[Rfam]
RNA: MIR9563 microRNA precursor family
RNA sequence: GUAAUAUAAAAUACGGUCUCUUAGUUUUUAACUAAAAAAGCUAAGAGACGUAGACAUCUCUUAAAUAAGAGACGUCUCUUAGUUUUUUUAGUUAAAAGCUAAGAGACCGUAUUUUAUAUUAC
Dot-bracket structure: (((((((((((((((((((((((((((((((((((((((.(((((((............................))))))).)))))))))))))))))))))))))))))))))))))))
Numbered sequence: 001g002u003a004a005u006a007u008a009a010a011a012u013a014c015g016g017u018c019u020c021u022u023a024g025u026u027u028u029u030a031a032c033u034a035a036a037a038a039a040g041c042u043a044a045g046a047g048a049c050g051u052a053g054a055c056a057u058c059u060c061u062u063a064a065a066u067a068a069g070a071g072a073c074g075u076c077u078c079u080u081a082g083u084u085u086u087u088u089u090a091g092u093u094a095a096a097a098g099c100u101a102a103g104a105g106a107c108c109g110u111a112u113u114u115u116a117u118a119u120u121a122c
Stems, first nucleotide, its partner, number of pairs: 001122039041082007